[Rfam]
RNA sequence: UGGGUCGGUGAGACGGUCGCGUAGCCGCGCAAGCGGCUCCGAGGAACGUCCGGGCUCCGCAGGGGAGAACGGUGGGUAACGCCCACCCGGGGCAACCCGCGAGAAAGUGCAACAGAGAGUAGACCGCCUGGGGGCUUGCCCCUCGGUAAGGCUGAAAGGGUGGGGUAAGAGCCCACCAGCGUUCGUGGUAACACGAGCGGCUAGGUAAACCUCGUUCGGAGCAAGGCCAGACAGAAUGCGUUGACGCGCCCCGCUGAGCAUUCGGGUAGGCCGCUAGAGGGUACUGGUAACAGUGCCGCGAGAUAGAUGACCGUCAGCACCGGCCGCGAGGCCGGCGAGACAGAACCCGGCGUAUGAUCCGGCCCAUUUC
Numbered sequence: 001u002g003g004g005u006c007g008g009u010g011a012g013a014c015g016g017u018c019g020c021g022u023a024g025c026c027g028c029g030c031a032a033g034c035g036g037c038u039c040c041g042a043g044g045a046a047c048g049u050c051c052g053g054g055c056u057c058c059g060c061a062g063g064g065g066a067g068a069a070c071g072g073u074g075g076g077u078a079a080c081g082c083c084c085a086c087c088c089g090g091g092g093c094a095a096c097c098c099g100c101g102a103g104a105a106a107g108u109g110c111a112a113c114a115g116a117g118a119g120u121a122g123a124c125c126g127c128c129u130g131g132g133g134g135c136u137u138g139c140c141c142c143u144c145g146g147u148a149a150g151g152c153u154g155a156a157a158g159g160g161u162g163g164g165g166u167a168a169g170a171g172c173c174c175a176c177c178a179g180c181g182u183u184c185g186u187g188g189u190a191a192c193a194c195g196a197g198c199g200g201c202u203a204g205g206u207a208a209a210c211c212u213c214g215u216u217c218g219g220a221g222c223a224a225g226g227c228c229a230g231a232c233a234g235a236a237u238g239c240g241u242u243g244a245c246g247c248g249c250c251c252c253g254c255u256g257a258g259c260a261u262u263c264g265g266g267u268a269g270g271c272c273g274c275u276a277g278a279g280g281g282u283a284c285u286g287g288u289a290a291c292a293g294u295g296c297c298g299c300g301a302g303a304u305a306g307a308u309g310a311c312c313g314u315c316a317g318c319a320c321c322g323g324c325c326g327c328g329a330g331g332c333c334g335g336c337g338a339g340a341c342a343g344a345a346c347c348c349g350g351c352g353u354a355u356g357a358u359c360c361g362g363c364c365c366a367u368u369u370c
Stems, first nucleotide, its partner, number of pairs: 001366008011355001012315007020041002023038006046353003050350005055221004062251003067217005072086005087101001088099004102212002107210002109206002124151002126147003130143005159177006179201001180199008225272004234263006245253002280297007

This 370-nucleotide RNA from Leucobacter sp. cx-87 belongs to the Rfam family "Bacterial RNase P class A". A search with the family's covariance model found it, with a score of 290 bits. Its family is annotated with tRNA processing, dimeric ribonuclease P complex and ribonuclease P activity in the Gene Ontology. Rfam classes the family as a ribozyme.